[Rfam]
RNA sequence: GGGGUCCGUUCGCACAACUUCGCAUGGCAGGGGCGGGGGAACCACUUACGGGUUUCAAUCGAAAUCCUUGGGGUUAAGUUUUGGGAAUUCCCGGUAUUCGCCGGAAUUCCCAUGGCCGGAUGACUCCCAUCCGAACCCGACAGCUCACCUCGCAGGCAUGGGAGAGGUAUAGA
Number, nucleotide and partner (000 for none) at each position: 001g000002g000003g000004g000005u031006c030007c000008g000009u000010u000011c000012g000013c000014a000015c000016a000017a000018c000019u000020u000021c000022g000023c000024a000025u000026g000027g000028c000029a000030g006031g005032g000033g153034c152035g151036g150037g149038g148039g000040a000041a000042c000043c070044a069045c000046u000047u000048a000049c000050g000051g000052g000053u000054u000055u000056c000057a000058a000059u000060c000061g000062a000063a000064a000065u000066c000067c000068u000069u044070g043071g138072g137073g136074u000075u000076a000077a000078g000079u115080u114081u000082u112083g111084g110085g109086a108087a107088u106089u105090c104091c103092c000093g000094g000095u000096a000097u000098u000099c000100g000101c000102c000103g091104g090105a089106a088107u087108u086109c085110c084111c083112a082113u000114g080115g079116c000117c000118g132119g131120a130121u129122g000123a000124c000125u000126c000127c000128c000129a121130u120131c119132c118133g000134a000135a000136c073137c072138c071139g000140a000141c000142a000143g000144c000145u000146c000147a000148c038149c037150u036151c035152g034153c033154a000155g000156g000157c000158a000159u000160g000161g000162g000163a000164g000165a000166g000167g000168u000169a000170u000171a000172g000173a000

Rfam assigns this 173-nucleotide RNA sequence from Crystallibacter crystallopoietes to the family "c-di-AMP riboswitch aptamer (ydaO/yuaA leader)". The organism belongs to Crystallibacter crystallopoietes, within Bacteria.